[Rfam]
RNA sequence: AUCGAAUCAAGGCAAACCGUCGGAAACGUCGGCAACGCAAAGCUACAAGGGGCUACCGCGAUUUGUAUCGCCAAGCCAGCCAGCUGCUCGU
Number, nucleotide and partner (000 for none) at each position: 001a000002u000003c000004g000005a000006a000007u000008c000009a000010a000011g000012g038013c037014a000015a000016a000017c032018c031019g030020u000021c028022g027023g000024a000025a000026a000027c022028g021029u000030c019031g018032g017033c000034a000035a000036c000037g013038c012039a000040a000041a085042g084043c083044u082045a000046c000047a000048a000049g081050g080051g077052g076053c075054u000055a000056c000057c000058g071059c070060g069061a068062u000063u000064u000065g000066u000067a000068u061069c060070g059071c058072c000073a000074a000075g053076c052077c051078a000079g000080c050081c049082a044083g043084c042085u041086g000087c000088u000089c000090g000091u000